Description: DUF805 RNA: a 66-nucleotide RNA sequence from Ohtaekwangia koreensis. Rfam classes the family as a cis-regulatory element. Pairs were carried over by alignment from the consensus structure, which is taken from published work. A search with the family's covariance model found it, with a score of 63 bits. Rfam 15.1 lists 281 matches to the family in 219 species.
RNA sequence: UGUUAGUGGAGCAGCAACCACUUGAAAAAACGGGCGCAUCCGAAAAGCCUCACGAGUAGGAAAGCG
Numbered sequence: 001u002g003u004u005a006g007u008g009g010a011g012c013a014g015c016a017a018c019c020a021c022u023u024g025a026a027a028a029a030a031c032g033g034g035c036g037c038a039u040c041c042g043a044a045a046a047g048c049c050u051c052a053c054g055a056g057u058a059g060g061a062a063a064g065c066g
Stems, first nucleotide, its partner, number of pairs: 006021004033049003040060002